[Rfam]
RNA sequence: GAAAUCCCAUCUGGUAAGGUGCCAGCCACACCACCAGUAGCGAACCUUGGGCAGGUAUUGGUAACAAUGCAGGCUAAGCGUAGGUAGCAAGGUAGUAGGGCUACAGGGCAGUUUUAGCAUCGAAAGAAAGCUAAAACCAGUGCGCCGACGCAGUUAACUUUGCGGAAGGCAACAUGUGUGACAUCGAAAUGGCGAGAUUUUACACAGCACUGCGGUGUUGGAAUGCC
Numbered sequence: 001g002a003a004a005u006c007c008c009a010u011c012u013g014g015u016a017a018g019g020u021g022c023c024a025g026c027c028a029c030a031c032c033a034c035c036a037g038u039a040g041c042g043a044a045c046c047u048u049g050g051g052c053a054g055g056u057a058u059u060g061g062u063a064a065c066a067a068u069g070c071a072g073g074c075u076a077a078g079c080g081u082a083g084g085u086a087g088c089a090a091g092g093u094a095g096u097a098g099g100g101c102u103a104c105a106g107g108g109c110a111g112u113u114u115u116a117g118c119a120u121c122g123a124a125a126g127a128a129a130g131c132u133a134a135a136a137c138c139a140g141u142g143c144g145c146c147g148a149c150g151c152a153g154u155u156a157a158c159u160u161u162g163c164g165g166a167a168g169g170c171a172a173c174a175u176g177u178g179u180g181a182c183a184u185c186g187a188a189a190u191g192g193c194g195a196g197a198u199u200u201u202a203c204a205c206a207g208c209a210c211u212g213c214g215g216u217g218u219u220g221g222a223a224u225g226c227c
Base pairs, nucleotide, nucleotide: 011037012036013035014034018032019031021029025193026192040088041087044085045084046083047082048080049079050075051074052073055070056069057068058067059066060065114221117218118217119216120215121214122213138212139211140210141209142208143207144170145169146168149164150163151162152161175206176205177204178203179202180201181200183198184197185196
The record is a 227-nucleotide RNA from Lachnospiraceae bacterium 28-4, which matches "Group II catalytic intron D1-D4-6" in Rfam.
Its family is annotated with Group II intron splicing in the Gene Ontology.
Group II introns are found in rRNA, tRNA and mRNA of organelles in fungi, plants and protists, and also in mRNA in bacteria.
The match comes from Rfam's covariance-model search (152 bits).
On this family, see Chu et al., EMBO J 2001: "Control of branch-site choice by a group II intron".
The pairing is the family consensus, mapped onto this sequence.